mir-148/mir-152 microRNA precursor family: a 73-nucleotide RNA sequence from Carassius auratus.
RNA sequence: CUCGGGGAAAGUUCUGUGGUCCACUCUGGCUGUGUGAGUGUGUGGUCAGUGCAUUACAGAACUUUGCUCUAGA
Dot-bracket structure: ...(((.(((((((((.....((((..((((............)))))))).....))))))))).)))....

Gene Ontology terms of the family: RISC complex and miRNA-mediated post-transcriptional gene silencing. A reference for the family is Chen et al. (2005), "The developmental miRNA profiles of zebrafish as determined by small RNA cloning", Genes Dev. Pairs were carried over by alignment from the consensus structure, which was predicted with RNAalifold. Rfam 15.1 lists 1,272 matches to the family in 609 species.